Shown here is a 73-nucleotide RNA from Pseudogymnoascus sp. VKM F-3557, a member of the family "tRNA". It scores 59 bits against the family's covariance model. The family's consensus secondary structure is taken from published work. The organism belongs to Pseudogymnoascus, within Eukaryota.
[Rfam]
RNA sequence: GAGACUUUGGCUUAAUUGGUAAAGCAUGUGCCUUUUAAUCACUAUUAUAUGGGUUCGAACCCCAUAGGUCUUA
Dot-bracket structure: (((((((..((((........))))..(((.........)))......(((((.......)))))))))))).